Rfam assigns this 101-nucleotide RNA from Sapajus apella to the family "Y RNA". It scores 62 bits against the family's covariance model.
[Rfam]
RNA sequence: GGCUGGUCCGAGUGCAGUGGUGUUUACAAAUAAUUAGUCACAGCCAGUUACAGGUGUCUUUGUUCCUUCUCCACCCCCCUACUUCACUUGGCCAGCCUUGA
Numbered sequence: 001g002g003c004u005g006g007u008c009c010g011a012g013u014g015c016a017g018u019g020g021u022g023u024u025u026a027c028a029a030a031u032a033a034u035u036a037g038u039c040a041c042a043g044c045c046a047g048u049u050a051c052a053g054g055u056g057u058c059u060u061u062g063u064u065c066c067u068u069c070u071c072c073a074c075c076c077c078c079c080u081a082c083u084u085c086a087c088u089u090g091g092c093c094a095g096c097c098u099u100g101a
Base pairs, nucleotide, nucleotide: 001097002096003095004094005093006092007091008090010089011088014085016080017079019077020076022075028064029063032060033059
Rfam classes the family as a non-coding RNA gene. NCBI's taxonomy places the organism under Eukaryota, Bilateria, Theria, Cebinae, Sapajus.